[Rfam]
RNA sequence: GGAGCGAUUGGACCACCUUGCAGUUUCAUGGCACACUCUCUCCAUUUCUCUACCGUUCAUGCAGCGGUUGAUCGAUUGGGUUGCUGGUUGAUUGAUCGAUCGAUGGUCAGGAGUUGGAAGAGAAUUGGAGAGAGUGCAUUGUGAAUUGCGGGGUUGACGAGGCGGAGGG
Numbered sequence: 001g002g003a004g005c006g007a008u009u010g011g012a013c014c015a016c017c018u019u020g021c022a023g024u025u026u027c028a029u030g031g032c033a034c035a036c037u038c039u040c041u042c043c044a045u046u047u048c049u050c051u052a053c054c055g056u057u058c059a060u061g062c063a064g065c066g067g068u069u070g071a072u073c074g075a076u077u078g079g080g081u082u083g084c085u086g087g088u089u090g091a092u093u094g095a096u097c098g099a100u101c102g103a104u105g106g107u108c109a110g111g112a113g114u115u116g117g118a119a120g121a122g123a124a125u126u127g128g129a130g131a132g133a134g135u136g137c138a139u140u141g142u143g144a145a146u147u148g149c150g151g152g153g154u155u156g157a158c159g160a161g162g163c164g165g166a167g168g169g
Stems, first nucleotide, its partner, number of pairs: 015154012028142004034136011046124006054117001071104008